[Rfam]
RNA sequence: GGCGAUAAACGCUGCGUGGAAUAGACGUUACGGACCCGGGGGCGGUACCCGGCGUCUCCACCAUUUCCGGCCCGCGUACCUGGGACGGCUUCUGGGGACGAAAUAGGAUCGACGUGCGUAAUAAAGACCCAGUUUUCGCUCGGUAUGGUUCCGCCGUCAUCGGGCUAAACUCAGAAGUGCCAACGACAAUCGUGUAGCACUCGCUGCCUAA
Numbered sequence: 001g002g003c004g005a006u007a008a009a010c011g012c013u014g015c016g017u018g019g020a021a022u023a024g025a026c027g028u029u030a031c032g033g034a035c036c037c038g039g040g041g042g043c044g045g046u047a048c049c050c051g052g053c054g055u056c057u058c059c060a061c062c063a064u065u066u067c068c069g070g071c072c073c074g075c076g077u078a079c080c081u082g083g084g085a086c087g088g089c090u091u092c093u094g095g096g097g098a099c100g101a102a103a104u105a106g107g108a109u110c111g112a113c114g115u116g117c118g119u120a121a122u123a124a125a126g127a128c129c130c131a132g133u134u135u136u137c138g139c140u141c142g143g144u145a146u147g148g149u150u151c152c153g154c155c156g157u158c159a160u161c162g163g164g165c166u167a168a169a170c171u172c173a174g175a176a177g178u179g180c181c182a183a184c185g186a187c188a189a190u191c192g193u194g195u196a197g198c199a200c201u202c203g204c205u206g207c208c209u210a211a
Stems, first nucleotide, its partner, number of pairs: 001140005014130001016128002026118003030115003036052005053100007141156004
Shown here is a 211-nucleotide RNA from Elstera litoralis, a member of the family "permuted transfer-messenger RNA". Rfam links the family to the GO term RNA catabolic process.